The record is a 36-nucleotide RNA sequence from Methanopyrus kandleri, which matches "CRISPR RNA direct repeat element" in Rfam.
RNA sequence: UAUUAUUUACCCAUAUUAUUACGGGUUAAUUGCGAG
Numbered sequence: 001u002a003u004u005a006u007u008u009a010c011c012c013a014u015a016u017u018a019u020u021a022c023g024g025g026u027u028a029a030u031u032g033c034g035a036g
Stems, first nucleotide, its partner, number of pairs: 009026004014021002

Rfam's curators put it in the seed alignment. Gene Ontology term of the family: defense response.